[Rfam]
RNA: c-di-GMP-I riboswitch aptamer
Organism: Cellulomonas cellasea
RNA sequence: AGCGAGAAACGGCAAACCCGCCGCAAGGUGGGGACGCAAAGCCACGGGGCCUCAGGGGUCAGCCGAGCUACCGAA
Numbered sequence: 001a002g003c004g005a006g007a008a009a010c011g012g013c014a015a016a017c018c019c020g021c022c023g024c025a026a027g028g029u030g031g032g033g034a035c036g037c038a039a040a041g042c043c044a045c046g047g048g049g050c051c052u053c054a055g056g057g058g059u060c061a062g063c064c065g066a067g068c069u070a071c072c073g074a075a
Base pairs, nucleotide, nucleotide: 012037013036017032018031019030020029021028022027040069041068042067045065046064047063048060049059050058051057052056
Dot-bracket structure: ...........((...((((((....))))))...))..(((..((((((((...)))))..))).)))......